[Rfam]
RNA sequence: UGACGGAAGGGCAUCACCGGGUGUGGAGCCUGCGGCUUAAUUUGACUCAACACGGGAAAACUUACUAGGUCAGGACAUCGUAAGGAUUGACAGAUUGAGAGCUCUUUCUUGAUUCGAUGGUUGGUGGUGCAUGGCCGUUCUUAGUUGGUGGAGUGAUCUGUCUGGUUAAUUCCGUUAACGAGCGAGACCUGGGCGUGCUAGCUAGGCGCCACUACUAUUUUUGGUAGUGUUUGUGGUUCCUACCUAGACGGACUGCAGGCUUCUAGCCUGCGGAAGCUCCAGGCAAUAACAGGUCUGAGAUGCCCUUAGAUGUCCUGGGCCGCACGCGUGCUACACUGAAUGGUUCAACGGGUGAGGUGAUGCGAGAGCAUUACCGAAUCUCUAAAUCCAUUCGUGAUGGGAAUAAUGGUCUGCAAUUUUUCCAUUUGAACGAGGAAUACCUUGUAAGCGUGGGUCAUCAUCCCGCGCUGAAUACGUCCCUGCCCUUUGUACACA
Numbered sequence: 001u002g003a004c005g006g007a008a009g010g011g012c013a014u015c016a017c018c019g020g021g022u023g024u025g026g027a028g029c030c031u032g033c034g035g036c037u038u039a040a041u042u043u044g045a046c047u048c049a050a051c052a053c054g055g056g057a058a059a060a061c062u063u064a065c066u067a068g069g070u071c072a073g074g075a076c077a078u079c080g081u082a083a084g085g086a087u088u089g090a091c092a093g094a095u096u097g098a099g100a101g102c103u104c105u106u107u108c109u110u111g112a113u114u115c116g117a118u119g120g121u122u123g124g125u126g127g128u129g130c131a132u133g134g135c136c137g138u139u140c141u142u143a144g145u146u147g148g149u150g151g152a153g154u155g156a157u158c159u160g161u162c163u164g165g166u167u168a169a170u171u172c173c174g175u176u177a178a179c180g181a182g183c184g185a186g187a188c189c190u191g192g193g194c195g196u197g198c199u200a201g202c203u204a205g206g207c208g209c210c211a212c213u214a215c216u217a218u219u220u221u222u223g224g225u226a227g228u229g230u231u232u233g234u235g236g237u238u239c240c241u242a243c244c245u246a247g248a249c250g251g252a253c254u255g256c257a258g259g260c261u262u263c264u265a266g267c268c269u270g271c272g273g274a275a276g277c278u279c280c281a282g283g284c285a286a287u288a289a290c291a292g293g294u295c296u297g298a299g300a301u302g303c304c305c306u307u308a309g310a311u312g313u314c315c316u317g318g319g320c321c322g323c324a325c326g327c328g329u330g331c332u333a334c335a336c337u338g339a340a341u342g343g344u345u346c347a348a349c350g351g352g353u354g355a356g357g358u359g360a361u362g363c364g365a366g367a368g369c370a371u372u373a374c375c376g377a378a379u380c381u382c383u384a385a386a387u388c389c390a391u392u393c394g395u396g397a398u399g400g401g402a403a404u405a406a407u408g409g410u411c412u413g414c415a416a417u418u419u420u421u422c423c424a425u426u427u428g429a430a431c432g433a434g435g436a437a438u439a440c441c442u443u444g445u446a447a448g449c450g451u452g453g454g455u456c457a458u459c460a461u462c463c464c465g466c467g468c469u470g471a472a473u474a475c476g477u478c479c480c481u482g483c484c485c486u487u488u489g490u491a492c493a494c495a
Stems, first nucleotide, its partner, number of pairs: 001493002003490003007487007016477002020441005025334001027332003031328004035323002041056004065318005071312001076119005089108002092105003123306002126304004132300001134294003137290003144183003148179002150159003163174003189282004194250003198247004204241003253273008338393006350382003356375002360371004400431001405426005447469008